[Rfam]
RNA sequence: CGCUUGCGUGAACGGGGGCUGAAUCCACCGGCAGCGCGCAGGGGAAAGCCGAGACUGCGGGGAAAGCGUCUGAGAUAUCGGCAACGGGAUGGCGAAGCUAGCGUCCCGGAGGACGCGUAGAGGCUGGCGGGC
Numbered sequence: 001c002g003c004u005u006g007c008g009u010g011a012a013c014g015g016g017g018g019c020u021g022a023a024u025c026c027a028c029c030g031g032c033a034g035c036g037c038g039c040a041g042g043g044g045a046a047a048g049c050c051g052a053g054a055c056u057g058c059g060g061g062g063a064a065a066g067c068g069u070c071u072g073a074g075a076u077a078u079c080g081g082c083a084a085c086g087g088g089a090u091g092g093c094g095a096a097g098c099u100a101g102c103g104u105c106c107c108g109g110a111g112g113a114c115g116c117g118u119a120g121a122g123g124c125u126g127g128c129g130g131g132c
Stems, first nucleotide, its partner, number of pairs: 001044001003042008031058004049081004054076001069110001085108006097128006
The family of this 132-nucleotide sequence from Burkholderia sp. lig30 is "Betaproteobacteria-1 RNA".
Rfam classes the family as a small RNA.
A search with the family's covariance model found it, with a score of 66 bits.
The source organism's lineage runs through Bacteria, Pseudomonadati, Betaproteobacteria, Burkholderiaceae and Burkholderia.